RNA sequence: CCUGGGACUUGCGUCCCCAGGCUAACACAUCUCGUCGCUUCGCGACU
Number, nucleotide and partner (000 for none) at each position: 001c021002c020003u019004g018005g017006g015007a014008c013009u000010u000011g000012c000013g008014u007015c006016c000017c005018c004019a003020g002021g001022c000023u000024a000025a000026c000027a000028c000029a000030u000031c000032u000033c000034g046035u045036c044037g043038c042039u000040u000041c000042g038043c037044g036045a035046c034047u000
Description:
The family of this 47-nucleotide RNA from Rosistilla oblonga is "Acido-Lenti-1 RNA". It scores 42 bits against the family's covariance model. The source organism's lineage runs through Bacteria, Pseudomonadati, Planctomycetota, Planctomycetia and Rosistilla. Rfam 15.1 lists 2,607 matches to the family in 171 species. It is annotated as a small RNA.